[Rfam]
RNA sequence: UAGAACUGACAGACUGAUAGGUAGAAUGAGAGGGUAACGCCUUGAAAUGCCACCCUAAUACUCCGUUGUGCGUAGACUGGAAACGGUCUGGGUGCAAAGCACGGUGAAGAAUUGAGGAAGUGCAUCCUAACGUAAAGCCGAGGAAAGUUUGGCAGAGGUGCCAGAUGUGCAUGAAACUUAUGGGGUCUAUAAG
Numbered sequence: 001u002a003g004a005a006c007u008g009a010c011a012g013a014c015u016g017a018u019a020g021g022u023a024g025a026a027u028g029a030g031a032g033g034g035u036a037a038c039g040c041c042u043u044g045a046a047a048u049g050c051c052a053c054c055c056u057a058a059u060a061c062u063c064c065g066u067u068g069u070g071c072g073u074a075g076a077c078u079g080g081a082a083a084c085g086g087u088c089u090g091g092g093u094g095c096a097a098a099g100c101a102c103g104g105u106g107a108a109g110a111a112u113u114g115a116g117g118a119a120g121u122g123c124a125u126c127c128u129a130a131c132g133u134a135a136a137g138c139c140g141a142g143g144a145a146a147g148u149u150u151g152g153c154a155g156a157g158g159u160g161c162c163a164g165a166u167g168u169g170c171a172u173g174a175a176a177c178u179u180a181u182g183g184g185g186u187c188u189a190u191a192a193g
Stems, first nucleotide, its partner, number of pairs: 018052001020051004031043004053185004063104004067096005073090007111181001113180004120172006126143003132138001147166008
Shown here is a 193-nucleotide RNA from bacterium 1xD8-6, a member of the family "Group II catalytic intron D1-D4-5".
Rfam describes the family as follows. Group II introns are found in rRNA, tRNA and mRNA of organelles in fungi, plants and protists, and also in mRNA in bacteria.
For this family Rfam cites "Control of branch-site choice by a group II intron" (Chu et al., EMBO J, 2001).
It scores 153 bits against the family's covariance model.